Background:
Glycine riboswitch aptamer: a 102-nucleotide RNA from Terracoccus luteus. Pairs were carried over by alignment from the consensus structure. Rfam's curators write: This family represents the bacterial glycine riboswitch. NCBI's taxonomy places the organism under Bacteria, Bacillati, Actinomycetota, Micrococcales, Terracoccus.

[Rfam]
RNA sequence: CAACCUCACACGGGAGAGUCCUCGGGGUGGUGUGACCACCUGCGAGGCGCCGAAGGGGCAACAUCCCCGGAACCUCUCAGGCGCCCGGACCGUGUGGGGGAG
Dot-bracket structure: .....((((((((......((((....................)))).(((((..(((...(......)....))))).))).......)))))))).....
Numbered sequence: 001c002a003a004c005c006u007c008a009c010a011c012g013g014g015a016g017a018g019u020c021c022u023c024g025g026g027g028u029g030g031u032g033u034g035a036c037c038a039c040c041u042g043c044g045a046g047g048c049g050c051c052g053a054a055g056g057g058g059c060a061a062c063a064u065c066c067c068c069g070g071a072a073c074c075u076c077u078c079a080g081g082c083g084c085c086c087g088g089a090c091c092g093u094g095u096g097g098g099g100g101a102g
Stems, first nucleotide, its partner, number of pairs: 006097008020047004049082003052078002056076003062069001